[Rfam]
RNA sequence: AUGUCAAAGUGCUAACAGUGCAGGUAGCUUUUUGAGUUCUACUGCAGUGCCAGCACUUCUUACAU
Numbered sequence: 001a002u003g004u005c006a007a008a009g010u011g012c013u014a015a016c017a018g019u020g021c022a023g024g025u026a027g028c029u030u031u032u033u034g035a036g037u038u039c040u041a042c043u044g045c046a047g048u049g050c051c052a053g054c055a056c057u058u059c060u061u062a063c064a065u
Stems, first nucleotide, its partner, number of pairs: 001065001003063002007058007016049002019046003023043005